[Rfam]
RNA: SAM riboswitch aptamer (S box leader)
RNA sequence: UUCUUAUCACGAGAGGUGGAGGGACUGGCCCUUUGAAACCUCAGCAACCGGUCUGCACUGACGACGUCAGUGCACCAAGGUGCUAAAUCCAGCAAGCGGAUGCUUGGAAGAUAAGAA
Numbered sequence: 001u002u003c004u005u006a007u008c009a010c011g012a013g014a015g016g017u018g019g020a021g022g023g024a025c026u027g028g029c030c031c032u033u034u035g036a037a038a039c040c041u042c043a044g045c046a047a048c049c050g051g052u053c054u055g056c057a058c059u060g061a062c063g064a065c066g067u068c069a070g071u072g073c074a075c076c077a078a079g080g081u082g083c084u085a086a087a088u089c090c091a092g093c094a095a096g097c098g099g100a101u102g103c104u105u106g107g108a109a110g111a112u113a114a115g116a117a
Stems, first nucleotide, its partner, number of pairs: 001117008013042005021031003025092004043084004048080002050076003088109001093106004
Dot-bracket structure: ((((((((....(((((...(((.[[[[)))......)))))((((.(((((.....................)))..))))))...(]]]]((((......))))..)))))))))